Photosynthesis regulatory RNA1: a 72-nucleotide RNA from Scytonema hofmannii.
Gene Ontology terms of the family: regulation of photosynthesis and regulation of translation.
Rfam classes the family as a small RNA.
Formerly known as Syr1 discovered in Synechocystis sp PCC 6803, is a regulatory factor controlling photosynthetic functions. PsrR1 interacts with the ribosome binding regions of several photosynthesis-related mRNAs. In particular, psaL mRNA is processed by RNase E only in the presence of PsrR1.
[Rfam]
RNA sequence: AAAAAGUUUUCAGAUUAGUCCCAUCGACAUUUGGAUUCCUCAAUGUACCUCGGCUGUCAAACCGAGGUUUUU
Dot-bracket structure: ..............................................(((((((........)))))))....
Numbered sequence: 001a002a003a004a005a006g007u008u009u010u011c012a013g014a015u016u017a018g019u020c021c022c023a024u025c026g027a028c029a030u031u032u033g034g035a036u037u038c039c040u041c042a043a044u045g046u047a048c049c050u051c052g053g054c055u056g057u058c059a060a061a062c063c064g065a066g067g068u069u070u071u072u
Stems, first nucleotide, its partner, number of pairs: 047068007